Source information:
Rfam assigns this 118-nucleotide RNA sequence from Aquamicrobium sp. LC103 to the family "Alphaproteobacterial ar14".

RNA sequence: GAAUACCCGCGGCAAGGAAACCUCCUCCCUUCCAACCCGCGGGUCCAGAUCGGCAUCCUCCUCCCGCCGGUCUGACACAGGAAAAGGCCGGGACCUCCUCCCCCCGGCCUUUUUCCUU
Number, nucleotide and partner (000 for none) at each position: 001g000002a000003a000004u000005a000006c000007c042008c041009g040010c000011g038012g037013c000014a000015a000016g033017g032018a000019a000020a000021c000022c000023u000024c000025c000026u000027c000028c000029c000030u000031u000032c017033c016034a000035a000036c000037c012038c011039g000040c009041g008042g007043g000044u000045c000046c000047a073048g072049a071050u070051c069052g068053g067054c000055a000056u000057c000058c000059u000060c000061c000062u000063c000064c000065c000066g000067c053068c052069g051070g050071u049072c048073u047074g000075a000076c000077a000078c000079a000080g000081g000082a113083a112084a111085a110086g109087g108088c107089c106090g105091g104092g103093a000094c000095c000096u000097c000098c000099u000100c000101c000102c000103c092104c091105c090106g089107g088108c087109c086110u085111u084112u083113u082114u000115c000116c000117u000118u000

Lineage of the source: Bacteria > Pseudomonadota > Hyphomicrobiales > Phyllobacteriaceae > Aquamicrobium.
Rfam describes the family as follows. Smr14C2 was renamed NfeR1 (Nodule Formation Efficiency RNA) highly expressed in salt stress and during the symbiotic interaction on legume roots.
Gene Ontology term of the family: biological process involved in symbiotic interaction.